Annotation: Shown here is a 102-nucleotide RNA sequence from Coprococcus sp. AF21-14LB, a member of the family "NiCo (Nickel/Cobalt) riboswitch aptamer". The source organism's lineage runs through Bacteria, Bacillota, Clostridia, Lachnospiraceae and Coprococcus. For this family Rfam cites "Bacterial riboswitches cooperatively bind Ni(2+) or Co(2+) ions and control expression of heavy metal transporters" (Furukawa et al., Mol Cell, 2015). The family is grouped with related families in Rfam's "NiCo_riboswitches".
[Rfam]
RNA sequence: ACAGUACAAACUGAACAGGCAGUAAUCAGAUUGAUUAUGUGCCGGGUCACUUACAUUUCGUAUUUUCGUGACAGCAGACAGCAUAGCAUCUGCGGGACAGUA
Numbered sequence: 001a002c003a004g005u006a007c008a009a010a011c012u013g014a015a016c017a018g019g020c021a022g023u024a025a026u027c028a029g030a031u032u033g034a035u036u037a038u039g040u041g042c043c044g045g046g047u048c049a050c051u052u053a054c055a056u057u058u059c060g061u062a063u064u065u066u067c068g069u070g071a072c073a074g075c076a077g078a079c080a081g082c083a084u085a086g087c088a089u090c091u092g093c094g095g096g097a098c099a100g101u102a
Stems, first nucleotide, its partner, number of pairs: 010101004016096001018043004022038006046072005074093005